[Rfam]
RNA sequence: GCAUGGCCGAAUACUGUGUUUUUUUAUCCGUAAUCUACACAGCCAGACACCAUGCCAUAGUAUCAUUUCCCUUUAACGUACUUCCGGUGUGCUGUGUCUUCUUCGUGGCAUAUCAUCUGUAAAGGUGAACACAGAG
Numbered sequence: 001g002c003a004u005g006g007c008c009g010a011a012u013a014c015u016g017u018g019u020u021u022u023u024u025u026a027u028c029c030g031u032a033a034u035c036u037a038c039a040c041a042g043c044c045a046g047a048c049a050c051c052a053u054g055c056c057a058u059a060g061u062a063u064c065a066u067u068u069c070c071c072u073u074u075a076a077c078g079u080a081c082u083u084c085c086g087g088u089g090u091g092c093u094g095u096g097u098c099u100u101c102u103u104c105g106u107g108g109c110a111u112a113u114c115a116u117c118u119g120u121a122a123a124g125g126u127g128a129a130c131a132c133a134g135a136g
Stems, first nucleotide, its partner, number of pairs: 001055006014042006067129003070125006086114009

This 136-nucleotide RNA sequence from Echinops telfairi belongs to the Rfam family "Small nucleolar RNA SNORA15". By type it is an H/ACA-box small nucleolar RNA. Rfam's curators write: ACA15 is a member of the H/ACA class of snoRNA that guide the sites of modification of uridines to pseudouridines. Rfam 15.1 lists 974 matches to the family in 624 species. Rfam's curators put it in the seed alignment. A reference for the family is Huttenhofer et al. (2001), "RNomics: an experimental approach that identifies 201 candidates for novel, small, non-messenger RNAs in mouse", EMBO J.